[Rfam]
Nucleotides: 085
Stems, first nucleotide, its partner, number of pairs: 002084005013073001015071007023063002026060008035051001
Number, partner (000 for none) and nucleotide at each position: 001000a002084c003083u004082u005081g006080g007000a008000c009000u010000g011000c012000u013073a014000u015071a016070g017069c018068a019067g020066c021065g022000c023063a024062u025000c026060a027059u028058g029057g030056u031055u032054u033053g034000a035051a036000a037000c038000a039000g040000u041000g042000u043000u044000g045000a046000a047000a048000a049000g050000a051035u052000g053033c054032g055031a056030a057029c058028c059027a060026u061000c062024a063023u064000u065021u066020g067019c068018u069017g070016c071015u072000u073013u074000a075000g076000u077000a078000u079000u080006u081005u082004a083003a084002g085000a
Background
The record is an 85-nucleotide RNA from Salmo trutta, which matches "mir-15 microRNA precursor family" in Rfam. Clan: mir-15 clan. From the family's description: This family represents the related mir-15a and mir-15b sequences. A search with the family's covariance model found it, with a score of 58 bits. Rfam 15.1 lists 2,045 matches to the family in 649 species. Its family is annotated with miRNA-mediated post-transcriptional gene silencing and RISC complex in the Gene Ontology. Taxonomically the source falls in Salmo (Eukaryota, Eumetazoa, Bilateria, Chordata).